Shown here is a 135-nucleotide sequence from Rhodopseudomonas sp., a member of the family "Alphaproteobacterial sRNA BjrC1505". Rfam classes the family as a small RNA. Taxonomically the source falls in Rhodopseudomonas (Bacteria, Pseudomonadati, Pseudomonadota, Nitrobacteraceae).
RNA sequence: UCGUUUACGCGACGUUAAGCCUUCCGAGGUAUUACUUCAUUGUCCAUCUUUUGGACCGAGUGGCUCCUGUCCACUCUGUUUUGACGCCUCCCUGUUACCAACUUUAAAGCCGCCGGAAACGGCGGCUCUUUUUUU
Numbered sequence: 001u002c003g004u005u006u007a008c009g010c011g012a013c014g015u016u017a018a019g020c021c022u023u024c025c026g027a028g029g030u031a032u033u034a035c036u037u038c039a040u041u042g043u044c045c046a047u048c049u050u051u052u053g054g055a056c057c058g059a060g061u062g063g064c065u066c067c068u069g070u071c072c073a074c075u076c077u078g079u080u081u082u083g084a085c086g087c088c089u090c091c092c093u094g095u096u097a098c099c100a101a102c103u104u105u106a107a108a109g110c111c112g113c114c115g116g117a118a119a120c121g122g123c124g125g126c127u128c129u130u131u132u133u134u135u
Stems, first nucleotide, its partner, number of pairs: 002009001011033002016031002021026001042056004058076006083096004106129001108127008